[Rfam]
RNA: HDV ribozyme from F. prausnitzii
RNA sequence: GGGGAACAAAAGUAGCCCACCUCCACGUGGUGUUUCCUGGGCAACGGUGCAUUCUUUGGAACUGCAUCGGCUAAGGGGCCCUA
Dot-bracket structure: (((((((...........(((.......))))))))))......(((((((...........)))))))..............